[Rfam]
RNA sequence: GGUAUUGUUUGCCCCACGAUGAGCCCCGGAACCUUAUUGUGUAUUGUCAAACAUUCA
Numbered sequence: 001g002g003u004a005u006u007g008u009u010u011g012c013c014c015c016a017c018g019a020u021g022a023g024c025c026c027c028g029g030a031a032c033c034u035u036a037u038u039g040u041g042u043a044u045u046g047u048c049a050a051a052c053a054u055u056c057a
Stems, first nucleotide, its partner, number of pairs: 006053006015041009
The family of this 57-nucleotide RNA sequence from Vagococcus humatus is "Ribosomal protein L13 leader". Rfam classes the family as a cis-regulatory leader. NCBI's taxonomy places the organism under Bacteria, Bacillati, Bacilli, Lactobacillales, Vagococcus. Rfam links the family to the GO term regulation of gene expression. This family is a putative r-protein leader autoregulatory structure found in B. subtilis and other low-GC Gram-positive bacteria. It is located in the 5' untranslated regions of mRNAs encoding the L13-S9 (rplM-rpsI) ribosomal protein operon. A search with the family's covariance model found it, with a score of 59 bits.